RNA sequence: AUACUCUAGUUUCUCUUUGGAUCAAAAAAAUCUUUCACCUUUUAUUAAAGAUUUCCAUGAAGAGGAACAAAUCUGAGUUUUUGAUCAAUUUUUUGAGGCCUUGUUUUGGCAAAGCU
Numbered sequence: 001a002u003a004c005u006c007u008a009g010u011u012u013c014u015c016u017u018u019g020g021a022u023c024a025a026a027a028a029a030a031u032c033u034u035u036c037a038c039c040u041u042u043u044a045u046u047a048a049a050g051a052u053u054u055c056c057a058u059g060a061a062g063a064g065g066a067a068c069a070a071a072u073c074u075g076a077g078u079u080u081u082u083g084a085u086c087a088a089u090u091u092u093u094u095g096a097g098g099c100c101u102u103g104u105u106u107u108g109g110c111a112a113a114g115c116u
Base pairs, nucleotide, nucleotide: 003078004077005076006075009068010067011066012065013064014063015062016061017060018059019058028054029053030052031051032050033049034048035047096116098115099114101112102111103110
Dot-bracket structure: ..((((..(((((((((((........((((((((...........))))))))...)))))))))))......)))).................(.((.(((......))).)))
Shown here is a 116-nucleotide sequence from Prolemur simus, a member of the family "U5 spliceosomal RNA". U5 RNA is a component of both types of known spliceosome. The match comes from Rfam's covariance-model search (81 bits). Pairs were carried over by alignment from the consensus structure, which is taken from published work.